Lysine riboswitch aptamer: a 179-nucleotide RNA sequence from Mesobacillus campisalis.
The source organism's lineage runs through Bacteria, Bacillati, Bacillota, Bacillaceae and Mesobacillus.
About the family: Riboswitches are metabolite binding domains within certain messenger RNAs that serve as precision sensors for their corresponding targets. Allosteric rearrangement of mRNA structure is mediated by ligand binding, and this results in modulation of gene expression. This family includes riboswitches that sense lysine in a number of genes involved in lysine metabolism, including lysC.
[Rfam]
RNA sequence: AGUAAGGAUAGAGGCGCAAAGACCAUAAGUACUCAUUCUGAGGAUAAUGAGGUCCAUUGAGGAUUGGGGAAAGGGGUAUUUGCCGAAACUUUGAGAACUCAUUCUUCUUAAAGUUGGUUCUGUGAUUGAAUAAAUGCAGAACUGUCAUAUAGGGAACUAUAUGGAGGGCUAUCUUACGC
Numbered sequence: 001a002g003u004a005a006g007g008a009u010a011g012a013g014g015c016g017c018a019a020a021g022a023c024c025a026u027a028a029g030u031a032c033u034c035a036u037u038c039u040g041a042g043g044a045u046a047a048u049g050a051g052g053u054c055c056a057u058u059g060a061g062g063a064u065u066g067g068g069g070a071a072a073g074g075g076g077u078a079u080u081u082g083c084c085g086a087a088a089c090u091u092u093g094a095g096a097a098c099u100c101a102u103u104c105u106u107c108u109u110a111a112a113g114u115u116g117g118u119u120c121u122g123u124g125a126u127u128g129a130a131u132a133a134a135u136g137c138a139g140a141a142c143u144g145u146c147a148u149a150u151a152g153g154g155a156a157c158u159a160u161a162u163g164g165a166g167g168g169c170u171a172u173c174u175u176a177c178g179c
Stems, first nucleotide, its partner, number of pairs: 006174006016083005022077003032068004037063003087115011116143009126133001145164007